Overview: Shown here is a 141-nucleotide sequence from Escherichia coli, a member of the family "isrN Hfq binding RNA". The sequence is in the family's curated seed alignment.

[Rfam]
RNA sequence: CGAAAACGACGGCCACAGACUAGGGCAUCAUGCAUAAAAUCGACAGACCAGCUCAGGUUCAGACUCCGGCAGGCCUGACGGAUACUGAGUUCGAACGUCGUUAUCAGAUGAGUAACCAGCUCACGCUUAAAGGCUGGUUUU
Numbered sequence: 001c002g003a004a005a006a007c008g009a010c011g012g013c014c015a016c017a018g019a020c021u022a023g024g025g026c027a028u029c030a031u032g033c034a035u036a037a038a039a040u041c042g043a044c045a046g047a048c049c050a051g052c053u054c055a056g057g058u059u060c061a062g063a064c065u066c067c068g069g070c071a072g073g074c075c076u077g078a079c080g081g082a083u084a085c086u087g088a089g090u091u092c093g094a095a096c097g098u099c100g101u102u103a104u105c106a107g108a109u110g111a112g113u114a115a116c117c118a119g120c121u122c123a124c125g126c127u128u129a130a131a132g133g134c135u136g137g138u139u140u141u
Stems, first nucleotide, its partner, number of pairs: 026110004032104001046075001048073002051070002056065003078101004114139003118135003